Shown here is a 110-nucleotide RNA sequence from Mycolicibacterium chubuense, a member of the family "TPP riboswitch aptamer (THI element)". Its family is annotated with thiamine pyrophosphate binding in the Gene Ontology.
[Rfam]
RNA sequence: CACCGACCACACGGGAGUCCCGGGUACGGGGACUGAGAGUGAGCCCGCCGGCUCUGACCGUCGCACCUGAUCCGGGUCAUGCCGGCGAAGGGAGUAGCAGUGCCGGAUCC
Number, nucleotide and partner (000 for none) at each position: 001c000002a000003c000004c000005g000006a000007c097008c000009a095010c094011a061012c060013g059014g058015g000016a055017g033018u032019c031020c030021c029022g000023g000024g000025u000026a000027c000028g000029g021030g020031g019032a018033c017034u000035g000036a000037g000038a000039g000040u000041g054042a053043g052044c051045c000046c000047g000048c000049c000050g000051g044052c043053u042054c041055u016056g000057a000058c014059c013060g012061u011062c000063g000064c000065a000066c091067c090068u089069g000070a000071u000072c085073c084074g083075g082076g000077u000078c000079a000080u000081g000082c075083c074084g073085g072086c000087g000088a000089a068090g067091g066092g000093a000094g010095u009096a000097g007098c000099a000100g000101u000102g000103c000104c000105g000106g000107a000108u000109c000110c000